[Rfam]
RNA: FMN riboswitch aptamer (RFN element)
Organism: Lachnospira multipara
RNA sequence: AUAGUUCUUCGGGGCGUGGUGAGAGUCCACACCGGCGGUAAAGCCCGCGAGCAAGCAAUUGCAUGACUUGGUGAAAUUCCAAGGCCGACAGUAAAGUCUGGAUGGUAGAAGAUGAUA
Numbered sequence: 001a002u003a004g005u006u007c008u009u010c011g012g013g014g015c016g017u018g019g020u021g022a023g024a025g026u027c028c029a030c031a032c033c034g035g036c037g038g039u040a041a042a043g044c045c046c047g048c049g050a051g052c053a054a055g056c057a058a059u060u061g062c063a064u065g066a067c068u069u070g071g072u073g074a075a076a077u078u079c080c081a082a083g084g085c086c087g088a089c090a091g092u093a094a095a096g097u098c099u100g101g102a103u104g105g106u107a108g109a110a111g112a113u114g115a116u117a
Base pairs, nucleotide, nucleotide: 006112007111008110009109010108017029018028019027031097032096033087034086035048036047037046038045043085044084067083068082069081070080071079089100090099091098